[Rfam]
RNA: TPP riboswitch aptamer (THI element)
RNA sequence: UCAAGCUACUAGGGGUGCCCUGUUUUACGGGCUGAGAGGAAAAUGCAAAGUUUUUUAACCCUUCAGACCUGAUCUGGAUCAUGCCAGCGUAGGAAAGUAGUGAAUGGAAAAA
Numbered sequence: 001u002c003a004a005g006c007u008a009c010u011a012g013g014g015g016u017g018c019c020c021u022g023u024u025u026u027a028c029g030g031g032c033u034g035a036g037a038g039g040a041a042a043a044u045g046c047a048a049a050g051u052u053u054u055u056u057a058a059c060c061c062u063u064c065a066g067a068c069c070u071g072a073u074c075u076g077g078a079u080c081a082u083g084c085c086a087g088c089g090u091a092g093g094a095a096a097g098u099a100g101u102g103a104a105u106g107g108a109a110a111a112a
Base pairs, nucleotide, nucleotide: 006100007099008098009097010096011062012061013060014059017032018031019030020029039055040054041053042052043051068093069092070091071090074087075086076085077084